This 193-nucleotide RNA from Paspalum vaginatum belongs to the Rfam family "MIR159 microRNA precursor family". The base pairs follow the family's consensus structure, which was predicted with WAR. The match comes from Rfam's covariance-model search (79 bits). The literature on the family includes a 2004 paper in Mol Cell by Jones-Rhoades and Bartel, "Computational identification of plant microRNAs and their targets, including a stress-induced miRNA". Lineage of the source: Eukaryota > Embryophyta > Tracheophyta > Liliopsida > Paspalum. Gene Ontology terms of the family: miRNA-mediated post-transcriptional gene silencing and RISC complex.
RNA sequence: GGGAACAGGAGGGAGCACCCUUCAGUCCAAGCAAAGAUGGUGCGAGAUCGAAGAUUUUACCUCCCGCUUCAUUCACUCAUCUGCAAAGCUCUUUCCAUGGCCGUUGCUUGGCAUGUGGGUGAAUGAGUCGGCAGCUAAUUCGACCCUAGCACCGCCCCUGAGUGGACUGAAGGACGCUCUCUUCCAUCAGGCC
Number, nucleotide and partner (000 for none) at each position: 001g000002g000003g000004a000005a000006c000007a000008g000009g000010a000011g000012g000013g179014a178015g177016c176017a000018c000019c173020c172021u000022u000023c169024a168025g167026u166027c165028c164029a163030a000031g000032c000033a000034a000035a000036g156037a000038u000039g000040g000041u000042g000043c000044g000045a000046g000047a000048u000049c000050g000051a000052a000053g000054a000055u000056u000057u000058u000059a000060c000061c134062u133063c000064c131065c130066g129067c000068u000069u000070c125071a124072u123073u122074c000075a000076c000077u000078c117079a000080u000081c000082u000083g000084c000085a000086a000087a000088g000089c000090u000091c000092u000093u000094u000095c000096c000097a000098u000099g000100g000101c000102c000103g000104u000105u000106g000107c000108u000109u000110g000111g000112c000113a000114u000115g000116u000117g078118g000119g000120u000121g000122a073123a072124u071125g070126a000127g000128u000129c066130g065131g064132c000133a062134g061135c000136u000137a000138a000139u000140u000141c000142g000143a000144c000145c000146c000147u000148a000149g000150c000151a000152c000153c000154g000155c000156c036157c000158c000159u000160g000161a000162g000163u029164g028165g027166a026167c025168u024169g023170a000171a000172g020173g019174a000175c000176g016177c015178u014179c013180u000181c000182u000183u000184c000185c000186a000187u000188c000189a000190g000191g000192c000193c000